c-di-GMP-II-GAG riboswitch aptamer: an 86-nucleotide sequence.
[Rfam]
RNA sequence: CAGCAAGUACGGGGCGACGACCCGCAGUCCACGCAUCCGGGCACUCCGACUGCGACGAGCCAGUAGUGCGACCGACGUACUUCACC
Numbered sequence: 001c002a003g004c005a006a007g008u009a010c011g012g013g014g015c016g017a018c019g020a021c022c023c024g025c026a027g028u029c030c031a032c033g034c035a036u037c038c039g040g041g042c043a044c045u046c047c048g049a050c051u052g053c054g055a056c057g058a059g060c061c062a063g064u065a066g067u068g069c070g071a072c073c074g075a076c077g078u079a080c081u082u083c084a085c086c
Stems, first nucleotide, its partner, number of pairs: 005082007013061003023054007039073002041069005
Dot-bracket structure: ....(((((((.(((.......(((((((.........[[[[[[[..)))))))....)))...]]]]]..]]..)))))))....
The literature on the family includes a 2017 paper in Proc Natl Acad Sci U S A by Weinberg et al., "Bioinformatic analysis of riboswitch structures uncovers variant classes with altered ligand specificity".